Notes
This 84-nucleotide RNA from Bacillus sp. V5-8f belongs to the Rfam family "c-di-GMP-I riboswitch aptamer". The family has 155 seed sequences and 5,092 matches in Rfam 15.1.
[Rfam]
RNA sequence: AUCAGUAAAGGGCAAACCUACUUGAAAAAUAGGGACGCAAAGUCGCAGAUCUAAGGCAUAUGCUAUGGUGGCUGGACUACCGGA
Number, nucleotide and partner (000 for none) at each position: 001a000002u000003c000004a000005g000006u000007a000008a000009a000010g000011g000012g038013c037014a000015a000016a000017c033018c032019u031020a030021c000022u029023u028024g000025a000026a000027a000028a023029a022030u020031a019032g018033g017034g000035a000036c000037g013038c012039a000040a000041a078042g077043u076044c075045g000046c074047a073048g072049a069050u068051c067052u000053a000054a000055g000056g063057c062058a000059u000060a000061u000062g057063c056064u000065a000066u000067g051068g050069u049070g000071g000072c048073u047074g046075g044076a043077c042078u041079a000080c000081c000082g000083g000084a000